[Rfam]
RNA sequence: GUUUCCGCGGCAAAUUCGCCGCGGCCUCAUUGAAGC
Numbered sequence: 001g002u003u004u005c006c007g008c009g010g011c012a013a014a015u016u017c018g019c020c021g022c023g024g025c026c027u028c029a030u031u032g033a034a035g036c
Stems, first nucleotide, its partner, number of pairs: 005024007

The record is a 36-nucleotide RNA from Candidatus Thiodictyon syntrophicum, which matches "CRISPR RNA direct repeat element" in Rfam. Pairs were carried over by alignment from the consensus structure, which was predicted with WAR.